RNA sequence: AUGCGGCGCGCGUCAACCGGACGUGGCGGUAUGGGUCAGCCCUAGGGAACGGGGAUGGUUUUUCCGGUUUCCCACCCCGGCCAACGCAUUGGCAGCCGAGCCCUUGUCCCGCCCGCGUC
Number, nucleotide and partner (000 for none) at each position: 001a000002u000003g000004c000005g000006g118007c117008g116009c115010g000011c023012g022013u021014c020015a000016a000017c000018c000019g000020g014021a013022c012023g011024u000025g113026g112027c111028g110029g109030u000031a000032u000033g000034g000035g000036u000037c000038a000039g000040c000041c000042c000043u000044a104045g103046g102047g101048a000049a000050c079051g078052g077053g076054g075055a000056u074057g073058g000059u000060u000061u000062u000063u000064c000065c000066g000067g000068u000069u000070u000071c000072c000073c057074a056075c054076c053077c052078c051079g050080g093081c092082c091083a000084a000085c000086g000087c000088a000089u000090u000091g082092g081093c080094a000095g000096c000097c000098g000099a000100g000101c047102c046103c045104u044105u000106g000107u000108c000109c029110c028111g027112c026113c025114c000115g009116c008117g007118u006119c000
A member of the RNA family "Rhizobiales sRNA Atu_At1" from Devosia pacifica, 119 nucleotides long. The organism belongs to Devosia, within Bacteria. A search with the family's covariance model found it, with a score of 84 bits. Rfam classes the family as a small RNA.